[Rfam]
Rfam assigns this 82-nucleotide sequence from Streptomyces sp. SID8352 to the family "Streptomyces RNA 6106". The literature on the family includes a 2011 paper in RNA Biol by Vockenhuber et al., "Deep sequencing-based identification of small non-coding RNAs in Streptomyces coelicolor". The source organism's lineage runs through Bacteria, Actinomycetota, Actinomycetes, Kitasatosporales and Streptomyces.
Nucleotides: 082
Stems, first nucleotide, its partner, number of pairs: 002018006020040002023038006042079013056065003
Number, partner (000 for none) and nucleotide at each position: 001000a002018c003017g004016c005015c006014g007013c008000c009000c010000c011000g012000a013007g014006c015005g016004g017003c018002g019000g020040a021039c022000a023038c024037g025036g026035c027034c028033c029000g030000u031000g032000a033028g034027g035026g036025c037024c038023g039021g040020u041000g042079g043078c044077g045076g046075g047074g048073g049072u050071g051070g052069u053068g054067c055000c056065g057064u058063g059000u060000c061000g062000g063058c064057g065056c066000a067054g068053c069052a070051c071050c072049a073048c074047c075046c076045c077044c078043g079042c080000a081000c082000a